[Rfam]
RNA sequence: ACACUGAAAGGAGGUGAUCCUGAGUUGAGUUCCAUCAGGAUGCGUGAGGUGGCUGCUCGCUAGAGCCGCCCCUGCCUGCGCAGGGUGAGGCCCCUGGCCUCCGGCAGGCGAAAUCCAUAGCAGUCACCCGGCCCGCGGGCUCACCGGUACAUCCCCGGUGCCUCGGCGCCUGGCCAGUGCACGGGCCGGCGCGAGGAGCAGCCCGCGGGCUGUCUGCU
Numbered sequence: 001a002c003a004c005u006g007a008a009a010g011g012a013g014g015u016g017a018u019c020c021u022g023a024g025u026u027g028a029g030u031u032c033c034a035u036c037a038g039g040a041u042g043c044g045u046g047a048g049g050u051g052g053c054u055g056c057u058c059g060c061u062a063g064a065g066c067c068g069c070c071c072c073u074g075c076c077u078g079c080g081c082a083g084g085g086u087g088a089g090g091c092c093c094c095u096g097g098c099c100u101c102c103g104g105c106a107g108g109c110g111a112a113a114u115c116c117a118u119a120g121c122a123g124u125c126a127c128c129c130g131g132c133c134c135g136c137g138g139g140c141u142c143a144c145c146g147g148u149a150c151a152u153c154c155c156c157g158g159u160g161c162c163u164c165g166g167c168g169c170c171u172g173g174c175c176a177g178u179g180c181a182c183g184g185g186c187c188g189g190c191g192c193g194a195g196g197a198g199c200a201g202c203c204c205g206c207g208g209g210c211u212g213u214c215u216g217c218u
Stems, first nucleotide, its partner, number of pairs: 013057004018052001058110004063105001066104003071097002129212013144189005
The record is a 218-nucleotide RNA sequence from Streptomyces rubellomurinus, which matches "Actinobacteria sRNA Ms_IGR-5" in Rfam. The organism belongs to Streptomyces, within Bacteria. A search with the family's covariance model found it, with a score of 63 bits.